[Rfam]
Small nucleolar RNA SNORA65: a 130-nucleotide RNA sequence from Rattus norvegicus. For this family Rfam cites "RNomics: an experimental approach that identifies 201 candidates for novel, small, non-messenger RNAs in mouse" (Huttenhofer et al., EMBO J, 2001). Lineage of the source: Eukaryota > Deuterostomia > Mammalia > Eutheria > Rattus. The family's consensus secondary structure was predicted with RNAalifold. About the family: U65 belongs to the H/ACA class of snoRNAs which are thought to guide the sites of modification of uridines to pseudouridines. Its Rfam clan is "SNORA65 clan". Its family is annotated with nucleolus and RNA processing in the Gene Ontology. Rfam 15.1 lists 1,089 matches to the family in 619 species.
RNA sequence: CCCGCCACUGCACCUGACCAGUAUUAUUGGCUGGUGCAAUCCAGUGGUGAGCUGACAGUAAGCCCCAGCUUUUAGGAAACAGGGUUGUCCUACAUGUGGGUGACUCUGUGCCGAAAGCGUGGGGACAGCC
Numbered sequence: 001c002c003c004g005c006c007a008c009u010g011c012a013c014c015u016g017a018c019c020a021g022u023a024u025u026a027u028u029g030g031c032u033g034g035u036g037c038a039a040u041c042c043a044g045u046g047g048u049g050a051g052c053u054g055a056c057a058g059u060a061a062g063c064c065c066c067a068g069c070u071u072u073u074a075g076g077a078a079a080c081a082g083g084g085u086u087g088u089c090c091u092a093c094a095u096g097u098g099g100g101u102g103a104c105u106c107u108g109u110g111c112c113g114a115a116a117g118c119g120u121g122g123g124g125a126c127a128g129c130c
Stems, first nucleotide, its partner, number of pairs: 005047006017035005022029002063123003067120001068118004075112002080108006088100003